[Rfam]
RNA sequence: UGGAGGUCUGAGAAGGUGAGGUAGCUCUGUACUGUGCUGCAGUCCACUGGUUAAGACCUCCAACAGCGAAGGCUGCUCAGACAGAGGAUGUCCCUCUGCCACCCUUGGAGGGGAAGUGCUGUGCUGGCCAACAUUUU
Numbered sequence: 001u002g003g004a005g006g007u008c009u010g011a012g013a014a015g016g017u018g019a020g021g022u023a024g025c026u027c028u029g030u031a032c033u034g035u036g037c038u039g040c041a042g043u044c045c046a047c048u049g050g051u052u053a054a055g056a057c058c059u060c061c062a063a064c065a066g067c068g069a070a071g072g073c074u075g076c077u078c079a080g081a082c083a084g085a086g087g088a089u090g091u092c093c094c095u096c097u098g099c100c101a102c103c104c105u106u107g108g109a110g111g112g113g114a115a116g117u118g119c120u121g122u123g124c125u126g127g128c129c130a131a132c133a134u135u136u137u
Stems, first nucleotide, its partner, number of pairs: 002061005015048004021040005080129001082127001085125002088122003096116002099113002102111002
RNA: Small nucleolar RNA SNORA47
Organism: Castor canadensis